[Rfam]
RNA: S. aureus tsr24 small RNA
RNA sequence: AAAUUAUACGAAGGGACCCAACACAGAAAAUUCAUUUUAUUGAAUUUUACAUUUAUGUGCAAGUUGGGCAAAGUGUCUUAUUUUUUUAAAGUAUUUAAAAGUAAAAUUACAUGUUAAUACGUAGUAUUAAUGGCGAGACUCCUGAGGGAGCAGUGCCAGUCGAAGACCGAGGCUGAGACGGCACCCUAGGAAAGCGAAGCCAUUCAAUACGAAGUAUUGUAUAAAUAGAGAACAGCAG
Numbered sequence: 001a002a003a004u005u006a007u008a009c010g011a012a013g014g015g016a017c018c019c020a021a022c023a024c025a026g027a028a029a030a031u032u033c034a035u036u037u038u039a040u041u042g043a044a045u046u047u048u049a050c051a052u053u054u055a056u057g058u059g060c061a062a063g064u065u066g067g068g069c070a071a072a073g074u075g076u077c078u079u080a081u082u083u084u085u086u087u088a089a090a091g092u093a094u095u096u097a098a099a100a101g102u103a104a105a106a107u108u109a110c111a112u113g114u115u116a117a118u119a120c121g122u123a124g125u126a127u128u129a130a131u132g133g134c135g136a137g138a139c140u141c142c143u144g145a146g147g148g149a150g151c152a153g154u155g156c157c158a159g160u161c162g163a164a165g166a167c168c169g170a171g172g173c174u175g176a177g178a179c180g181g182c183a184c185c186c187u188a189g190g191a192a193a194g195c196g197a198a199g200c201c202a203u204u205c206a207a208u209a210c211g212a213a214g215u216a217u218u219g220u221a222u223a224a225a226u227a228g229a230g231a232a233c234a235g236c237a238g
Base pairs, nucleotide, nucleotide: 004224005223006222007221008220009219010218011217027048028047029046030045031044032043033042034041049076050075051074052073053072054071056070057069058068060066061065092216093215094214095213096212101110102109103108111122112121113120114119124210125209126208127207128206129204130203131202132201133200134199140191141190142189143188145187146186147185148184150182151181153179154178157175158174159173160172161171